Rfam assigns this 261-nucleotide RNA from Lachnotalea sp. AF33-28 to the family "Bacterial large signal recognition particle RNA".

RNA sequence: CCGCGCAGCCGGGGAGGCAGCGGUGCCCUGUACCUGCAAUCCGCUACAGCAGGGGUGAUGUCCUGCCCAGGGGACAGAUUGUAGGGCUGCCCUGUAUAAGUGGCGUUGAUGCUUGGGUCUUGCGCAACAGGAAUUCACGAACCGUGUCAGGUCAGGAAUGAAGCAGCACUAAGUGAAACCUCCUGUGUGCCGUAAGACAGCCUGAGCUGAGCUAACUGUACAGGUAACGCUUAUGGUCUGUUUUCAAAGCAGGGCGCGCGG
Numbered sequence: 001c002c003g004c005g006c007a008g009c010c011g012g013g014g015a016g017g018c019a020g021c022g023g024u025g026c027c028c029u030g031u032a033c034c035u036g037c038a039a040u041c042c043g044c045u046a047c048a049g050c051a052g053g054g055g056u057g058a059u060g061u062c063c064u065g066c067c068c069a070g071g072g073g074a075c076a077g078a079u080u081g082u083a084g085g086g087c088u089g090c091c092c093u094g095u096a097u098a099a100g101u102g103g104c105g106u107u108g109a110u111g112c113u114u115g116g117g118u119c120u121u122g123c124g125c126a127a128c129a130g131g132a133a134u135u136c137a138c139g140a141a142c143c144g145u146g147u148c149a150g151g152u153c154a155g156g157a158a159u160g161a162a163g164c165a166g167c168a169c170u171a172a173g174u175g176a177a178a179c180c181u182c183c184u185g186u187g188u189g190c191c192g193u194a195a196g197a198c199a200g201c202c203u204g205a206g207c208u209g210a211g212c213u214a215a216c217u218g219u220a221c222a223g224g225u226a227a228c229g230c231u232u233a234u235g236g237u238c239u240g241u242u243u244u245c246a247a248a249g250c251a252g253g254g255c256g257c258g259c260g261g
Stems, first nucleotide, its partner, number of pairs: 001261006008056003011029004016024001018022001033053005062253005071245003074241001076239010088226002092223006100216002102213003111207008119196006125187002128185005134177005144169004152161003
Description:
About the family: The signal recognition particle (SRP) is a universally conserved ribonucleoprotein involved in the co-translational targeting of proteins to membranes. The family's RNA type in Rfam is non-coding RNA gene.